RNA sequence: CCUAGGAUUCCAUCCUAGGCUAUGGUUAUUCGUCCCUUCGGGACG
Numbered sequence: 001c002c003u004a005g006g007a008u009u010c011c012a013u014c015c016u017a018g019g020c021u022a023u024g025g026u027u028a029u030u031c032g033u034c035c036c037u038u039c040g041g042g043a044c045g
Stems, first nucleotide, its partner, number of pairs: 001019008032044005

Notes:
The record is a 45-nucleotide sequence from Soonwooa buanensis, which matches "Acido-Lenti-1 RNA" in Rfam. The match comes from Rfam's covariance-model search (41 bits).